This 192-nucleotide RNA from Cucumis melo belongs to the Rfam family "MIR168 microRNA precursor family".
[Rfam]
RNA sequence: UCAUCGGCGGUCUCUAAUUCGCUUGGUGCAGGUCGGGAACUGUUUCGCUUUUUGUUCACGUUGAUCUUGAUUGUUGUUGUUUCUUUCAAUUUCCUCUGCGUUGUUCAGGGGAAAUAUAUAUGUGUGUGUGUGUGUGUAAUCGAGCGAAUUGGAUCCCGCCUUGCAUCAACUGAAUCCGAGACAGCGAUGAAG
Numbered sequence: 001u002c003a004u005c006g007g008c009g010g011u012c013u014c015u016a017a018u019u020c021g022c023u024u025g026g027u028g029c030a031g032g033u034c035g036g037g038a039a040c041u042g043u044u045u046c047g048c049u050u051u052u053u054g055u056u057c058a059c060g061u062u063g064a065u066c067u068u069g070a071u072u073g074u075u076g077u078u079g080u081u082u083c084u085u086u087c088a089a090u091u092u093c094c095u096c097u098g099c100g101u102u103g104u105u106c107a108g109g110g111g112a113a114a115u116a117u118a119u120a121u122g123u124g125u126g127u128g129u130g131u132g133u134g135u136g137u138a139a140u141c142g143a144g145c146g147a148a149u150u151g152g153a154u155c156c157c158g159c160c161u162u163g164c165a166u167c168a169a170c171u172g173a174a175u176c177c178g179a180g181a182c183a184g185c186g187a188u189g190a191a192g
Stems, first nucleotide, its partner, number of pairs: 013179002017175004023169010034158005040152002
On this family, see Reinhart et al., Genes Dev 2002: "MicroRNAs in plants". NCBI's taxonomy places the organism under Eukaryota, Viridiplantae, eudicotyledons, Pentapetalae, Cucumis. It scores 101 bits against the family's covariance model.